[Rfam]
RNA: Manganese Mn2+ riboswitch aptamer (yybP-ykoY)
Organism: Psychrobacter sp. KH172YL61
RNA sequence: UAAGCACUCUUUGGGGAGUAGCCUGCUUUCGUACUGCGAAAGCGUUCGUAUCAACACACUUGGCCACAUGCCAUGGUGCGAACACCUCUCGGUUGGCGAGACCAUCGAUAUAUCUACACUGCAGGUCGGGGGUGUGGCUAUGUCGUGGACUCUAUACUCGACCAGAGA
Number, nucleotide and partner (000 for none) at each position: 001u000002a000003a000004g000005c000006a000007c000008u000009c000010u000011u000012u000013g000014g000015g000016g000017a000018g000019u000020a000021g000022c000023c000024u000025g000026c042027u041028u040029u000030c000031g000032u000033a000034c000035u000036g000037c000038g000039a000040a028041a027042g026043c000044g083045u082046u081047c080048g079049u078050a077051u076052c075053a074054a000055c000056a000057c000058a000059c000060u000061u073062g072063g071064c070065c000066a000067c000068a000069u000070g064071c063072c062073a061074u053075g052076g051077u050078g049079c048080g047081a046082a045083c044084a000085c000086c000087u168088c167089u166090c165091g000092g000093u000094u000095g000096g000097c000098g000099a000100g000101a000102c000103c000104a000105u000106c000107g000108a000109u000110a000111u000112a000113u000114c000115u000116a000117c000118a000119c000120u000121g000122c000123a000124g000125g000126u000127c000128g000129g000130g000131g000132g000133u000134g000135u000136g000137g000138c000139u000140a000141u000142g000143u000144c000145g000146u000147g000148g000149a000150c000151u000152c000153u000154a000155u000156a000157c000158u000159c000160g000161a000162c000163c000164a000165g090166a089167g088168a087